Rfam assigns this 108-nucleotide RNA sequence from Paenalicyclobacillus cellulosilyticus to the family "SAM riboswitch aptamer (S box leader)". The source organism's lineage runs through Bacteria, Bacillota, Bacilli, Alicyclobacillaceae and Paenalicyclobacillus. A search with the family's covariance model found it, with a score of 90 bits. Pairs were carried over by alignment from the consensus structure, which is taken from published work.

RNA sequence: CUCUUAUCCAGAGCGGCUGAGGGACUGGCCCGAUGACGCCCGGCAACCGGUGUCGCUUGCGGCACAAGGUGCCAAUUCCUGCGGGAGUUCGCUCCCGAGAGAUGAGGG
Number, nucleotide and partner (000 for none) at each position: 001c108002u107003c106004u105005u104006a103007u102008c101009c000010a000011g000012a000013g041014c000015g040016g039017c038018u000019g000020a000021g031022g030023g029024a000025c081026u000027g079028g078029c023030c022031c021032g000033a000034u000035g000036a000037c000038g017039c016040c015041c013042g073043g072044c071045a070046a000047c069048c068049g000050g065051u064052g063053u062054c000055g000056c000057u000058u000059g000060c000061g000062g053063c052064a051065c050066a000067a000068g048069g047070u045071g044072c043073c042074a000075a000076u000077u100078c028079c027080u000081g025082c097083g096084g095085g094086a093087g092088u000089u000090c000091g000092c087093u086094c085095c084096c083097g082098a000099g000100a077101g008102a007103u006104g005105a004106g003107g002108g001